[Rfam]
Nucleotides: 358
Stems, first nucleotide, its partner, number of pairs: 004358003007354001008312007016036006041352003045349005050230005055072006078225005083101006102117001103115004118220002121159003128151004136144002166218002168214003183202008234249003253284002256282005285297004316335007
Number, partner (000 for none) and nucleotide at each position: 001000a002000g003000u004358u005357u006356u007354g008312u009311g010310c011309a012308g013307u014306c015000g016036c017035g018034g019033u020032u021031a022000g023000c024000u025000a026000u027000a028000a029000g030000c031021u032020a033019g034018c035017u036016g037000a038000g039000g040000a041352a042351a043350g044000u045349c046348c047347a048346c049345g050230c051229a052228c053227g054226c055072a056071c057070a058069a059068g060067c061000u062000g063000c064000g065000a066000u067060g068059c069058u070057u071056g072055u073000a074000g075000u076000g077000u078225u079224c080223g081222u082221a083101u084100u085099c086098a087097g088096c089000c090000u091000a092000a093000u094000a095000a096088g097087c098086u099085g100084g101083a102117g103115g104114a105113u106112u107000u108000u109000u110000a111000u112106a113105a114104u115103c116000a117102c118220g119219g120000c121159g122158g123157a124000g125000a126000a127000c128151g129150u130149g131148c132000u133000a134000a135000a136144u137143c138000a139000u140000u141000u142000u143137g144136a145000c146000a147000u148131g149130c150129a151128u152000u153000a154000g155000u156000a157123u158122c159121c160000u161000g162000g163000a164000a165000a166218g167217u168214g169213c170212c171000a172000c173000a174000g175000u176000g177000a178000c179000g180000u181000a182000g183202c184201a185200g186199a187198g188197u189196c190195g191000g192000a193000a194000a195190c196189g197188a198187c199186u200185c201184u202183g203000g204000u205000g206000g207000a208000a209000c210000g211000a212170g213169g214168u215000a216000a217167a218166c219119c220118c221082u222081g223080c224079g225078a226054g227053c228052g229051u230050g231000c232000a233000a234249c235248c236247c237000a238000a239000a240000u241000u242000u243000g244000g245000u246000g247236g248235g249234g250000g251000c252000g253284u254283c255000u256282u257281g258280a259279u260278c261000u262000a263000a264000g265000g266000a267000a268000u269000u270000g271000a272000a273000c274000u275000a276000a277000a278260g279259a280258u281257c282256a283254g284253g285297u286296u287295g288294a289000u290000u291000u292000a293000u294288u295287c296286a297285a298000a299000g300000a301000u302000a303000g304000a305000u306014g307013g308012c309011u310010g311009c312008a313000g314000a315000c316335a317334g318333u319332g320331a321330u322329u323000u324000g325000c326000c327000a328000a329322a330321a331320u332319c333318a334317c335316u336000a337000g338000a339000a340000c341000a342000a343000a344000a345049c346048g347047u348046g349045g350043c351042u352041u353000a354007u355000a356006g357005a358004a

A member of the RNA family "Bacterial RNase P class B" from Lactobacillus pasteurii, 358 nucleotides long. The family's RNA type in Rfam is ribozyme. Rfam describes the family as follows. Ribonuclease P (RNase P) is a ubiquitous endoribonuclease, found in archaea, bacteria and eukarya as well as chloroplasts and mitochondria. Its best characterised activity is the generation of mature 5'-ends of tRNAs by cleaving the 5'-leader elements of precursor-tRNAs.